Burkholderia RNA 11: a 122-nucleotide RNA sequence from Lampropedia hyalina. Rfam links the family to the GO term protein binding. Co-purified with Hfq, expression confirmed by Northern blot. Predicted target marZ. Overlaps coding sequence. The family's consensus secondary structure was predicted with RNAfold. The literature on the family includes a 2013 paper in Genomics by Ramos et al., "Experimental identification of small non-coding regulatory RNAs in the opportunistic human pathogen Burkholderia cenocepacia J2315". By type it is a small RNA. NCBI's taxonomy places the organism under Bacteria, Betaproteobacteria, Burkholderiales, Lampropedia, Lampropedia hyalina.

RNA sequence: AGAACCUGAAGCUGGCACACCGCAACCCGGUGGUGUUUCGCUCGCUGCUGGGCAUCAGCUGGAUGUGGUUCGUCGGCUCGGUCAUGAUGAGCCAGUUUCCCAGCAUCGCCAAGGAUGUACUG
Numbered sequence: 001a002g003a004a005c006c007u008g009a010a011g012c013u014g015g016c017a018c019a020c021c022g023c024a025a026c027c028c029g030g031u032g033g034u035g036u037u038u039c040g041c042u043c044g045c046u047g048c049u050g051g052g053c054a055u056c057a058g059c060u061g062g063a064u065g066u067g068g069u070u071c072g073u074c075g076g077c078u079c080g081g082u083c084a085u086g087a088u089g090a091g092c093c094a095g096u097u098u099c100c101c102a103g104c105a106u107c108g109c110c111a112a113g114g115a116u117g118u119a120c121u122g
Stems, first nucleotide, its partner, number of pairs: 010049003014045001017042001022037001025034002051121002054118002059113002062110001063106003067100002072096002075093005081088002